[Rfam]
RNA sequence: UUGUAUCGCGCACAUCACUUAGAUGAACUCUAGAGAGUCGCAUAGAAG
Numbered sequence: 001u002u003g004u005a006u007c008g009c010g011c012a013c014a015u016c017a018c019u020u021a022g023a024u025g026a027a028c029u030c031u032a033g034a035g036a037g038u039c040g041c042a043u044a045g046a047a048g
Stems, first nucleotide, its partner, number of pairs: 010028001013025004
Shown here is a 48-nucleotide RNA from Gossypium harknessii, a member of the family "Plastid-ndhJ 3UTR RNA".
Pairs were carried over by alignment from the consensus structure, which was predicted with LocARNA.
From the family's description: Plastid ndhJ is a non-coding RNA (ncRNA) present in plastids. It was identified as a short stem-loop motif in the 3 prime untranslate region (3UTR) of ndhJ gene.
NCBI's taxonomy places the organism under Eukaryota, Embryophyta, Magnoliopsida, Pentapetalae, Gossypium.
The match comes from Rfam's covariance-model search (49 bits).
The literature on the family includes a 2023 paper in Plant Commun by Richter et al., "Retrograde signaling in plants: A critical review focusing on the GUN pathway and beyond".